The family of this 96-nucleotide sequence is "SAM-I/IV (S-adenosyl methionine) riboswitch aptamer". On this family, see Weinberg et al., RNA 2008: "The aptamer core of SAM-IV riboswitches mimics the ligand-binding site of SAM-I riboswitches". Rfam's curators put it in the seed alignment.
RNA sequence: AUCGUACAUCAAGAGUGAGAUUAAGUUCUCCUCCAACCUGCCAACUCCGGCAAGGUGGAAAAGAGAUGUGGUUAAUCAACAACUAAAGGAGAAAAA
Numbered sequence: 001a002u003c004g005u006a007c008a009u010c011a012a013g014a015g016u017g018a019g020a021u022u023a024a025g026u027u028c029u030c031c032u033c034c035a036a037c038c039u040g041c042c043a044a045c046u047c048c049g050g051c052a053a054g055g056u057g058g059a060a061a062a063g064a065g066a067u068g069u070g071g072u073u074a075a076u077c078a079a080c081a082a083c084u085a086a087a088g089g090a091g092a093a094a095a096a
Stems, first nucleotide, its partner, number of pairs: 006069005015031001017030004032059003037055003040051003045091004071080003